Description:
The record is a 94-nucleotide RNA sequence, which matches "Rhodo-rpoB RNA" in Rfam.

[Rfam]
RNA sequence: GGUUCGGGAGCCGAUCGGUGGGACGGUCGGCAUGAAUGGAACCUCACCCCCUGUUUUGUGAGCGGUGGUGUGCCGGUGCCCGACGGUCGCACAU
Numbered sequence: 001g002g003u004u005c006g007g008g009a010g011c012c013g014a015u016c017g018g019u020g021g022g023a024c025g026g027u028c029g030g031c032a033u034g035a036a037u038g039g040a041a042c043c044u045c046a047c048c049c050c051c052u053g054u055u056u057u058g059u060g061a062g063c064g065g066u067g068g069u070g071u072g073c074c075g076g077u078g079c080c081c082g083a084c085g086g087u088c089g090c091a092c093a094u
Stems, first nucleotide, its partner, number of pairs: 001043005010031008068092003072087004
By type it is a cis-regulatory element.